This 71-nucleotide RNA sequence from Mus musculus belongs to the Rfam family "mir-297 microRNA precursor family". It is one of the family's seed sequences. The base pairs follow the family's consensus structure, which was predicted with RNAalifold. The source organism's lineage runs through Eukaryota, Craniata, Eutheria, Rodentia and Mus. Gene Ontology terms of the family: cellular response to estrogen stimulus, cellular response to leukemia inhibitory factor and miRNA-mediated post-transcriptional gene silencing.

RNA sequence: GUAUAUGUAUGUGUGCAUGUGCAUGUGUGUAUAUGAAUAUACAUAUACAUACACACAUACCCAUACAAACA
Numbered sequence: 001g002u003a004u005a006u007g008u009a010u011g012u013g014u015g016c017a018u019g020u021g022c023a024u025g026u027g028u029g030u031a032u033a034u035g036a037a038u039a040u041a042c043a044u045a046u047a048c049a050u051a052c053a054c055a056c057a058u059a060c061c062c063a064u065a066c067a068a069a070c071a
Stems, first nucleotide, its partner, number of pairs: 006067006013060002017058005025052011